Source information
Shown here is a 67-nucleotide RNA from Enterobacteriaceae bacterium strain FGI 57, a member of the family "rdlD antitoxin". The family has 52 seed sequences and 86 matches in Rfam 15.1. A reference for the family is Kawano et al. (2002), "Molecular characterization of long direct repeat (LDR) sequences expressing a stable mRNA encoding for a 35-amino-acid cell-killing peptide and a cis-encoded small antisense RNA in Escherichia coli", Mol Microbiol.
RNA sequence: GUUGUGGUUCAAGAUUAGCCCCCGUUAUGUUGUCAGGUUUACACCUUACAAUGUGCGGGGGUUUUCU
Numbered sequence: 001g002u003u004g005u006g007g008u009u010c011a012a013g014a015u016u017a018g019c020c021c022c023c024g025u026u027a028u029g030u031u032g033u034c035a036g037g038u039u040u041a042c043a044c045c046u047u048a049c050a051a052u053g054u055g056c057g058g059g060g061g062u063u064u065u066c067u
Base pairs, nucleotide, nucleotide: 017063018062019061020060021059022058023057024056025055028053029052030051031050032049036044
Rfam links the family to the GO terms negative regulation of translation and mRNA binding. NCBI's taxonomy places the organism under Bacteria, Pseudomonadati, Gammaproteobacteria, Enterobacterales, Enterobacteriaceae.